[Rfam]
RNA sequence: CUUGGUACCUCGAUGUCGGCUCUUCCCAACCUGGCCGUGCAGAAGCGGCCAAGGGUGCGGCUGUUCGCCGAUCAAAGGGGAACGUGAGCUGGGUUUAGACCGUCGUGAGACAGAUCGGAU
Number, nucleotide and partner (000 for none) at each position: 001c000002u000003u000004g000005g000006u000007a000008c000009c000010u000011c000012g000013a000014u000015g000016u000017c092018g090019g089020c088021u087022c084023u081024u080025c079026c078027c077028a000029a000030c055031c054032u000033g000034g049035c048036c047037g046038u045039g000040c000041a000042g000043a000044a000045g038046c037047g036048g035049c034050c000051a000052a000053g000054g031055g030056u000057g000058c070059g069060g068061c067062u000063g000064u000065u000066c000067g061068c060069c059070g058071a000072u000073c000074a000075a000076a000077g027078g026079g025080g024081a023082a000083c000084g022085u000086g000087a021088g020089c019090u018091g000092g017093g000094u000095u000096u000097a000098g116099a115100c000101c113102g111103u110104c109105g000106u000107g000108a000109g104110a103111c102112a000113g101114a000115u099116c098117g000118g000119a000120u000
RNA: Archaeal large subunit ribosomal RNA, nucleotides 5050 to 5169
Organism: Candidatus Caldarchaeum subterraneum